RNA sequence: GGGCACCUUCGGGGGCCUAUAACUUCCGGUUCUGAUGGCGAAAGCCGAAUGAGCCGCAAAGCAAAUGGAAGACAGAAA
Numbered sequence: 001g002g003g004c005a006c007c008u009u010c011g012g013g014g015g016c017c018u019a020u021a022a023c024u025u026c027c028g029g030u031u032c033u034g035a036u037g038g039c040g041a042a043a044g045c046c047g048a049a050u051g052a053g054c055c056g057c058a059a060a061g062c063a064a065a066u067g068g069a070a071g072a073c074a075g076a077a078a
Base pairs, nucleotide, nucleotide: 001018002017003016004015006014007013008012028055029054030053031052032051
RNA: L2-Alphaproteobacteria ribosomal protein leader